c-di-GMP-I riboswitch aptamer: a 97-nucleotide sequence from Sinanaerobacter chloroacetimidivorans. Rfam's curators write: GEMM was predicted in a large-scale screen for bacterial structured RNA regulatory elements. Genes associated with GEMM are involved in a diverse array of functions, including chemotaxis regulation, signal transduction, secretion and chitin. Its family is annotated with cyclic-di-GMP binding in the Gene Ontology.
[Rfam]
RNA sequence: AUAUUGAAAGGGCAAACCUGCUGAAAAGCAGGGACGCAAAGUCAGGAGUCUAAAACAGUAAAACAUGAUUUGCUGUCAGGGCGGUCCGACUGCCACA
Number, nucleotide and partner (000 for none) at each position: 001a000002u000003a000004u000005u000006g000007a000008a000009a000010g000011g000012g037013c036014a000015a000016a000017c032018c031019u030020g029021c028022u027023g000024a000025a000026a000027a022028g021029c020030a019031g018032g017033g000034a000035c000036g013037c012038a000039a000040a091041g090042u089043c088044a000045g087046g086047a085048g082049u081050c080051u000052a000053a000054a000055a076056c075057a074058g073059u072060a071061a070062a069063a000064c000065a000066u000067g000068a000069u062070u061071u060072g059073c058074u057075g056076u055077c000078a000079g000080g050081g049082c048083g000084g000085u047086c046087c045088g043089a042090c041091u040092g000093c000094c000095a000096c000097a000